[Rfam]
RNA: SAH (S-adenosyl-L-homocysteine) riboswitch aptamer
Organism: alpha proteobacterium U9-1i
RNA sequence: CCCGCCAAGGAGCGUUGCGACGGCCCUCGCUUUGGCCGCCAGGCUUGGUGGGCUUUCCAGUUGGAAAACGACGCUCGCGAGCU
Numbered sequence: 001c002c003c004g005c006c007a008a009g010g011a012g013c014g015u016u017g018c019g020a021c022g023g024c025c026c027u028c029g030c031u032u033u034g035g036c037c038g039c040c041a042g043g044c045u046u047g048g049u050g051g052g053c054u055u056u057c058c059a060g061u062u063g064g065a066a067a068a069c070g071a072c073g074c075u076c077g078c079g080a081g082c083u
Base pairs, nucleotide, nucleotide: 002051003050004049005048006047007046008045021038022037023036024035025034